[Rfam]
RNA sequence: UGCGGGUCCCCUCGCAACGCUAACUGGUGAACCCGGUCAGGCCCGGAAGGGAGCAGCCGUAGUCAGGGAUGUGUGUGCCGAGGUGUGGCUGGUAGAGU
Numbered sequence: 001u002g003c004g005g006g007u008c009c010c011c012u013c014g015c016a017a018c019g020c021u022a023a024c025u026g027g028u029g030a031a032c033c034c035g036g037u038c039a040g041g042c043c044c045g046g047a048a049g050g051g052a053g054c055a056g057c058c059g060u061a062g063u064c065a066g067g068g069a070u071g072u073g074u075g076u077g078c079c080g081a082g083g084u085g086u087g088g089c090u091g092g093u094a095g096a097g098u
Base pairs, nucleotide, nucleotide: 005090006089007088008087010083011082012081013080014079015075017074018073019072020071024066025065026064027063028062034059035058036057037056042051043050044049
RNA: Bacterial small signal recognition particle RNA
Organism: Idiomarina loihiensis